[Rfam]
RNA sequence: UAAGUAAAACAGACAAUCGCGUGAGAUAAUCACGAGGAAAGUCCGUGCACCAUAGAGUAGAAUGCUGGAUAACGUCCAGUGGGGGCGACCCUAAGGCUAGUGCAACAGAGAUAUACCGCCAUUUAUAAUGGUAAGGGUGGAAAGGUGAGGUAAGAGCUUACCAGCAUAUAGGAGACUAUAUGGCUAUGUAAACCCCAUUCGGUGCAAGAUCAAGAUUGAACUUUUGUAGUUGCUCGCUACGUUCAUAGGUAGAUUGCUUGAACAAAUUGGCAACAAUUUGUCUAGAUAGAUGAUUGUCUAAUACAGAACACGGCUUAUAGUUUUGCUUAAUAU
Numbered sequence: 001u002a003a004g005u006a007a008a009a010c011a012g013a014c015a016a017u018c019g020c021g022u023g024a025g026a027u028a029a030u031c032a033c034g035a036g037g038a039a040a041g042u043c044c045g046u047g048c049a050c051c052a053u054a055g056a057g058u059a060g061a062a063u064g065c066u067g068g069a070u071a072a073c074g075u076c077c078a079g080u081g082g083g084g085g086c087g088a089c090c091c092u093a094a095g096g097c098u099a100g101u102g103c104a105a106c107a108g109a110g111a112u113a114u115a116c117c118g119c120c121a122u123u124u125a126u127a128a129u130g131g132u133a134a135g136g137g138u139g140g141a142a143a144g145g146u147g148a149g150g151u152a153a154g155a156g157c158u159u160a161c162c163a164g165c166a167u168a169u170a171g172g173a174g175a176c177u178a179u180a181u182g183g184c185u186a187u188g189u190a191a192a193c194c195c196c197a198u199u200c201g202g203u204g205c206a207a208g209a210u211c212a213a214g215a216u217u218g219a220a221c222u223u224u225u226g227u228a229g230u231u232g233c234u235c236g237c238u239a240c241g242u243u244c245a246u247a248g249g250u251a252g253a254u255u256g257c258u259u260g261a262a263c264a265a266a267u268u269g270g271c272a273a274c275a276a277u278u279u280g281u282c283u284a285g286a287u288a289g290a291u292g293a294u295u296g297u298c299u300a301a302u303a304c305a306g307a308a309c310a311c312g313g314c315u316u317a318u319a320g321u322u323u324u325g326c327u328u329a330a331u332a333u
Stems, first nucleotide, its partner, number of pairs: 001329010011318001012298007020034005039316003043313005048204004055235004060200005065079005080094001081092004095195002100193002102189003116136002118132006144162006164184001165182007208255004217245005226240005262281008

Source information:
The record is a 333-nucleotide RNA sequence from Parvimonas micra, which matches "Bacterial RNase P class A" in Rfam. Ribonuclease P (RNase P) is a ubiquitous endoribonuclease, found in archaea, bacteria and eukarya as well as chloroplasts and mitochondria.